[Rfam]
Nucleotides: 158
Stems, first nucleotide, its partner, number of pairs: 004023005033054005040047001057076003092158005099153007108141001111138004116133005
Number, partner (000 for none) and nucleotide at each position: 001000g002000u003000g004023c005022c006021u007020u008019a009000a010000a011000c012000u013000a014000a015000u016000g017000a018000g019008u020007a021006a022005g023004g024000a025000a026000a027000a028000u029000a030000u031000a032000u033054g034053a035052g036051c037050c038000u039000u040047g041000g042000u043000a044000a045000c046000g047040c048000u049000u050037g051036g052035u053034u054033c055000c056000a057076u058075g059074c060000c061000u062000a063000g064000c065000a066000a067000a068000u069000u070000c071000c072000u073000a074059g075058c076057g077000c078000a079000a080000u081000a082000a083000u084000u085000u086000u087000u088000a089000a090000a091000a092158g093157g094156a095155g096154u097000a098000u099153a100152g101151g102150u103149c104148g105147u106000c107000c108141u109000g110000u111138g112137g113136a114135u115000g116133a117132c118131u119130g120129c121000c122000u123000a124000c125000u126000u127000u128000c129120g130119c131118a132117g133116u134000u135114g136113u137112u138111c139000u140000a141108g142000u143000g144000a145000c146000a147105g148104c149103g150102a151101u152100c153099u154096g155095c156094u157093c158092c
The record is a 158-nucleotide RNA from Ignelater luminosus, which matches "U12 minor spliceosomal RNA" in Rfam. Taxonomically the source falls in Ignelater (Eukaryota, Eumetazoa, Altocrustacea, Dicondylia). Rfam links the family to the GO terms mRNA branch site recognition, pre-mRNA branch point binding and U12 snRNP.